[Rfam]
A member of the RNA family "Small nucleolar RNA SNORA71" from Nicator chloris, 129 nucleotides long. By type it is an H/ACA-box small nucleolar RNA.
RNA sequence: CCCUGCAUUCGAAAGUGAUUACGGUCCCACCCGUGGCCGGGUCAUUGAUAGUGCAGGGAGAGGAGUGCGAGAGUUUUCCCGUGUUUGGGUGGGGUCUGUGUCUCCCCCAAACCCUGUUGCUGUCGGACA
Number, nucleotide and partner (000 for none) at each position: 001c058002c057003c056004u055005g054006c053007a052008u051009u050010c000011g000012a000013a000014a046015g045016u044017g043018a042019u041020u040021a000022c000023g038024g037025u036026c035027c000028c000029a000030c000031c000032c000033g000034u000035g026036g025037c024038c023039g000040g020041g019042u018043c017044a016045u015046u014047g000048a000049u000050a009051g008052u007053g006054c005055a004056g003057g002058g001059a000060g000061a000062g000063g000064a000065g000066u126067g000068c125069g124070a123071g000072a121073g120074u119075u000076u000077u000078c000079c000080c000081g000082u000083g112084u111085u110086u109087g108088g106089g105090u000091g103092g102093g000094g000095u000096c000097u000098g000099u000100g000101u000102c092103u091104c000105c089106c088107c000108c087109a086110a085111a084112c083113c000114c000115u000116g000117u000118u000119g074120c073121u072122g000123u070124c069125g068126g066127a000128c000129a000
The organism belongs to Nicator, within Eukaryota.